The record is a 362-nucleotide RNA from Propioniferax innocua, which matches "Bacterial RNase P class A" in Rfam.
RNA sequence: CGAGGCGCCUAGGCGGUCGCGUCCAUGCCGCAAGGCGUGGUCGAGGAAAGUCCGGGCUCCACAGAGCAGGGUGGUGGGUAACGCCCACCCGGGGUGACCCGCGGGCCAGUGCCACAGAGAACAGACCGCCCCGAUGCGCCGGUUCGCCGACGUGCCGGGGUAAGGGUGAAACGGCGGUGUAAGAGACCACCGGCACCGUGAGCGAUCACGGUGGCCAGGUAAACCCCACCCGGAGCAAGACCAGACAGCAGGCGGGUUGCUCGCCCUUGCCUGCGGGUAGGUCGCUGGAGGCCGUCAGCAAUGACGGUCCGAGAUGGAUGACCGUCCCACGACAGAACCCGGCUUAUCAGGCGCCUCGUCAC
Numbered sequence: 001c002g003a004g005g006c007g008c009c010u011a012g013g014c015g016g017u018c019g020c021g022u023c024c025a026u027g028c029c030g031c032a033a034g035g036c037g038u039g040g041u042c043g044a045g046g047a048a049a050g051u052c053c054g055g056g057c058u059c060c061a062c063a064g065a066g067c068a069g070g071g072u073g074g075u076g077g078g079u080a081a082c083g084c085c086c087a088c089c090c091g092g093g094g095u096g097a098c099c100c101g102c103g104g105g106c107c108a109g110u111g112c113c114a115c116a117g118a119g120a121a122c123a124g125a126c127c128g129c130c131c132c133g134a135u136g137c138g139c140c141g142g143u144u145c146g147c148c149g150a151c152g153u154g155c156c157g158g159g160g161u162a163a164g165g166g167u168g169a170a171a172c173g174g175c176g177g178u179g180u181a182a183g184a185g186a187c188c189a190c191c192g193g194c195a196c197c198g199u200g201a202g203c204g205a206u207c208a209c210g211g212u213g214g215c216c217a218g219g220u221a222a223a224c225c226c227c228a229c230c231c232g233g234a235g236c237a238a239g240a241c242c243a244g245a246c247a248g249c250a251g252g253c254g255g256g257u258u259g260c261u262c263g264c265c266c267u268u269g270c271c272u273g274c275g276g277g278u279a280g281g282u283c284g285c286u287g288g289a290g291g292c293c294g295u296c297a298g299c300a301a302u303g304a305c306g307g308u309c310c311g312a313g314a315u316g317g318a319u320g321a322c323c324g325u326c327c328c329a330c331g332a333c334a335g336a337a338c339c340c341g342g343c344u345u346a347u348c349a350g351g352c353g354c355c356u357c358g359u360c361a362c
Base pairs, nucleotide, nucleotide: 001358002357003356004355005354006353007352008351009350010349011347012326013325014324015323016322017321018320020043021042023040024039025038026037027036028035048345049344050343052342053341054340055339056338057235058234059233060232064262065261066260067259069231070230071229072228073227074088075087076086077085078084089103090101091100092099093098104226105225109224110223111220112219113218126165127164128161129160130159131158132157133156135154136153137152138151173191174190176188177187178186193215194213195212196211197210198209199208200207201206239283240282241281242280248274249273250272251271252270253269254266255265256264257263290309291308292307293306294305295304296303297302

Rfam links the family to the GO terms tRNA processing, dimeric ribonuclease P complex and ribonuclease P activity.
A search with the family's covariance model found it, with a score of 300 bits.